[Rfam]
The family of this 116-nucleotide sequence from Myotis davidii is "Small nucleolar RNA SNORA25". Gene Ontology terms of the family: nucleolus and RNA processing. It is annotated as an H/ACA-box small nucleolar RNA.
RNA sequence: AGGUCAUUUCAAAGAGAGCUUAUGGGACCAAAACCAGGAGUUCUUAACUCUGUGACCUAAGAUUGAAGAUCUUUAUAGACACUCAAUAGUGCUAUGUUUUCCUGAGGAGUAUAAGG
Numbered sequence: 001a002g003g004u005c006a007u008u009u010c011a012a013a014g015a016g017a018g019c020u021u022a023u024g025g026g027a028c029c030a031a032a033a034c035c036a037g038g039a040g041u042u043c044u045u046a047a048c049u050c051u052g053u054g055a056c057c058u059a060a061g062a063u064u065g066a067a068g069a070u071c072u073u074u075a076u077a078g079a080c081a082c083u084c085a086a087u088a089g090u091g092c093u094a095u096g097u098u099u100u101c102c103u104g105a106g107g108a109g110u111a112u113a114a115g116g
Stems, first nucleotide, its partner, number of pairs: 002057006014045008023037001026035001067103002075095004080091004